[Rfam]
Small nucleolar RNA SNORD34: an 89-nucleotide sequence from Carex littledalei. Rfam classes the family as a C/D-box small nucleolar RNA. The match comes from Rfam's covariance-model search (48 bits). Clan: SNORD34 clan. NCBI's taxonomy places the organism under Eukaryota, Viridiplantae, Spermatophyta, Carex, Carex subgen. Euthyceras. The family has 14 seed sequences and 1,319 matches in Rfam 15.1. Rfam links the family to the GO terms nucleolus and RNA processing.
RNA sequence: GGAGGCCUGUGAUGAGUUGAUAAAUAAUAUAAAUUGCCUACAUUGGUUGAUUAACUAAUGAUAAUAGUUCCAAAAUUUCUGAGGCCGUA
Dot-bracket structure: .(.((((...........................................................................)))).).